[Rfam]
RNA: Glycine riboswitch aptamer
Organism: Sphingomonas koreensis
RNA sequence: AAGGCACGCGCGGGAGAGCAGGGGUGGUCAAACACCUCCGCCGAAGGAGCAACCGCCCCGGAAUCUCUCAGGCACCCAGGACCGCGCGGGGCCA
Numbered sequence: 001a002a003g004g005c006a007c008g009c010g011c012g013g014g015a016g017a018g019c020a021g022g023g024g025u026g027g028u029c030a031a032a033c034a035c036c037u038c039c040g041c042c043g044a045a046g047g048a049g050c051a052a053c054c055g056c057c058c059c060g061g062a063a064u065c066u067c068u069c070a071g072g073c074a075c076c077c078a079g080g081a082c083c084g085c086g087c088g089g090g091g092c093c094a
Stems, first nucleotide, its partner, number of pairs: 007088007021037003040073003043069002047067003053061002